[Rfam]
RNA: Bacterial RNase P class A
Organism: Lachnospiraceae bacterium MD308
RNA sequence: UGAGUAAGACAGGUAAUCGCGGCUGCAAGAGCCGAAAGGCUGCAGGUGAGGAAAGUCCGGGCUUCACAGGGCAGGAUGCCGGAUAACGUCCGGUGGAGGCGACUCUAAGGAAAGUGCAACAGAAAUGAACCGCCUUCCUUUAUGGAAGGUAAGGGUGGAAGGGCAGUGUAAGAGACUACCGCUUUGCUGGUAACAGCAGAGGCACAUGUAAACCCCAUCCGAAGCAAGGCCGGAUAAAGACUAUGUGGCGGCCCGUCACGUCUUAGGUUGGCUGCUUUAGCCUGCCGGCGACGGCAGGCAUAGAUAGAUGAUUACCCAUUGACAUGACCCGGCUUAUCGUCUUGCUCAUAUA
Numbered sequence: 001u002g003a004g005u006a007a008g009a010c011a012g013g014u015a016a017u018c019g020c021g022g023c024u025g026c027a028a029g030a031g032c033c034g035a036a037a038g039g040c041u042g043c044a045g046g047u048g049a050g051g052a053a054a055g056u057c058c059g060g061g062c063u064u065c066a067c068a069g070g071g072c073a074g075g076a077u078g079c080c081g082g083a084u085a086a087c088g089u090c091c092g093g094u095g096g097a098g099g100c101g102a103c104u105c106u107a108a109g110g111a112a113a114g115u116g117c118a119a120c121a122g123a124a125a126u127g128a129a130c131c132g133c134c135u136u137c138c139u140u141u142a143u144g145g146a147a148g149g150u151a152a153g154g155g156u157g158g159a160a161g162g163g164c165a166g167u168g169u170a171a172g173a174g175a176c177u178a179c180c181g182c183u184u185u186g187c188u189g190g191u192a193a194c195a196g197c198a199g200a201g202g203c204a205c206a207u208g209u210a211a212a213c214c215c216c217a218u219c220c221g222a223a224g225c226a227a228g229g230c231c232g233g234a235u236a237a238a239g240a241c242u243a244u245g246u247g248g249c250g251g252c253c254c255g256u257c258a259c260g261u262c263u264u265a266g267g268u269u270g271g272c273u274g275c276u277u278u279a280g281c282c283u284g285c286c287g288g289c290g291a292c293g294g295c296a297g298g299c300a301u302a303g304a305u306a307g308a309u310g311a312u313u314a315c316c317c318a319u320u321g322a323c324a325u326g327a328c329c330c331g332g333c334u335u336a337u338c339g340u341c342u343u344g345c346u347c348a349u350a351u352a
Base pairs, nucleotide, nucleotide: 001348002347003346004345005344006343007342008341009340010339011337012316013315014314015313016312017311018310020048021047023045024044025043026042027041053335054334055333057332058331059330060329061328062224063223064222065221069254070253071252072251074220075219076218077217078216079093080092081091082090083089094108095106096105097104098103109215110214114213115212116209117208118207130154131153132150133149134148135147136146137145138144162180163179165177166176167175181203182201183200184199185198186197187196188195189194228273229272230271231270237264238263239262240261241260245259246258247257248256249255280299281298282297283296284295285294286293287292